About this RNA: Shown here is a 102-nucleotide RNA sequence from Elainella sp. C42_A2020_010, a member of the family "TPP riboswitch aptamer (THI element)". The match comes from Rfam's covariance-model search (64 bits). Taxonomically the source falls in Elainella (Bacteria, Bacillati, Cyanobacteriota, Oculatellales). The base pairs follow the family's consensus structure, which is taken from published work.

Nucleotides: 102
Base pairs, nucleotide, nucleotide: 006090007089008088009087010086011051012050013049014048016045017037018036019035020034021033057083058082059081064077065076066075067074
Number, partner (000 for none) and nucleotide at each position: 001000u002000c003000g004000c005000a006090u007089a008088g009087c010086u011051a012050g013049g014048g015000g016045u017037g018036c019035c020034u021033g022000a023000g024000g025000c026000u027000u028000u029000u030000u031000u032000c033021c034020a035019g036018g037017c038000u039000g040000a041000g042000a043000u044000u045016a046000c047000a048014c049013c050012c051011u052000u053000a054000g055000a056000a057083c058082c059081u060000g061000a062000g063000u064077c065076c066075g067074g068000c069000u070000a071000g072000c073000a074067c075066c076065g077064g078000c079000g080000g081059a082058g083057g084000g085000a086010a087009g088008c089007u090006g091000u092000c093000u094000a095000c096000a097000a098000c099000g100000a101000g102000g